[Rfam]
RNA sequence: GGUUUUCAUUGGUGCAAAUCCAAUCUUGGAACUUAGGAGGAGAAAAAAUUACCCAUUGGUAGCAAAUGCUUAUCCAUUAAGAGGGAAAAAUCCUAU
Numbered sequence: 001g002g003u004u005u006u007c008a009u010u011g012g013u014g015c016a017a018a019u020c021c022a023a024u025c026u027u028g029g030a031a032c033u034u035a036g037g038a039g040g041a042g043a044a045a046a047a048a049u050u051a052c053c054c055a056u057u058g059g060u061a062g063c064a065a066a067u068g069c070u071u072a073u074c075c076a077u078u079a080a081g082a083g084g085g086a087a088a089a090a091u092c093c094u095a096u
Stems, first nucleotide, its partner, number of pairs: 009023004052085003055077002058074005
Rfam assigns this 96-nucleotide sequence from Gossypium australe to the family "Plastid-rps12 3UTR RNA". Pairs were carried over by alignment from the consensus structure, which was predicted with LocARNA. It scores 89 bits against the family's covariance model. Lineage of the source: Eukaryota > Mesangiospermae > rosids > malvids > Gossypium. Plastid rpl20 is a non-coding RNA (ncRNA) recognised in plastids. It was found in the three prime untranslated region (3UTR) of rps12 gene, its 3UTR location sugest a role in transcript maduration. On this family, see Richter et al., Plant Commun 2023: "Retrograde signaling in plants: A critical review focusing on the GUN pathway and beyond".